The record is a 76-nucleotide sequence from Alligator mississippiensis, which matches "Mammalian CPEB3 ribozyme" in Rfam. NCBI's taxonomy places the organism under Eukaryota, Deuterostomia, Teleostomi, Euteleostomi, Alligator.

Nucleotides: 076
Stems, first nucleotide, its partner, number of pairs: 013044002016042002021076007028039001049064006
Number, partner (000 for none) and nucleotide at each position: 001000g002000g003000u004000u005000g006000u007000a008000a009000g010000u011000u012000u013044g014043a015000a016042g017041c018000c019000a020000u021076a022075g023074c024073a025072g026071a027070a028039g029000c030000u031000c032000u033000a034000a035000g036000a037000c038000a039028c040000a041017g042016c043014u044013c045000u046000g047000u048000g049064a050063g051062a052061u053060u054059c055000c056000a057000g058000u059054g060053a061052a062051u063050c064049u065000g066000c067000a068000a069000a070027u071026u072025c073024u074023g075022c076021u